Shown here is a 211-nucleotide sequence from Hydrogenispora ethanolica, a member of the family "Enterococcus sRNA 1300". It scores 102 bits against the family's covariance model. Rfam 15.1 lists 115 matches to the family in 105 species.
[Rfam]
Nucleotides: 211
Base pairs, nucleotide, nucleotide: 006098007097008096009095010094012092013090014089015088019085020084021083022082023081024080025079026078029077030076031075032074033073034072035071036070037069038068039067040066041065049064050063051062099149100148101147102146103145104144109141112139113138115137116136117134118133119132120131121130122129123128164204165203166202167201168200169199171197172196174193175192176191178189179188180187181186
Number, partner (000 for none) and nucleotide at each position: 001000a002000u003000g004000u005000a006098u007097u008096c009095u010094a011000u012092u013090c014089g015088u016000u017000u018000a019085a020084g021083a022082u023081a024080a025079g026078c027000u028000g029077g030076c031075a032074a033073u034072a035071a036070a037069a038068a039067a040066g041065c042000g043000g044000u045000a046000a047000a048000a049064c050063c051062a052000a053000c054000c055000a056000c057000g058000a059000c060000u061000g062051u063050g064049g065041g066040c067039u068038u069037u070036u071035u072034u073033g074032u075031u076030g077029u078026g079025c080024u081023u082022a083021u084020u085019u086000u087000a088015a089014c090013g091000a092012a093000u094010u095009a096008g097007g098006a099149c100148a101147u102146g103145g104144a105000u106000a107000c108000g109141g110000g111000c112139g113138a114000g115137g116136a117134a118133u119132a120131g121130c122129c123128g124000u125000u126000u127000a128123c129122g130121g131120c132119u133118a134117u135000c136116u137115c138113u139112u140000c141109u142000c143000c144104u145103u146102c147101a148100u149099g150000u151000c152000u153000u154000u155000c156000u157000c158000g159000u160000u161000g162000a163000u164204a165203u166202g167201c168200a169199g170000a171197c172196c173000a174193g175192a176191g177000c178189c179188c180187g181186c182000a183000c184000g185000a186181g187180c188179g189178g190000a191176c192175u193174u194000g195000u196172g197171g198000c199169c200168u201167g202166c203165a204164u205000u206000u207000u208000u209000u210000a211000u

The source organism's lineage runs through Bacteria, Bacillati, Bacillota and Hydrogenispora. The base pairs follow the family's consensus structure, which was predicted with RNAfold. The family's RNA type in Rfam is small RNA. About the family: Expressed in mid and late exponential phases of growth. Expression remained uniform under daptomycin exposure.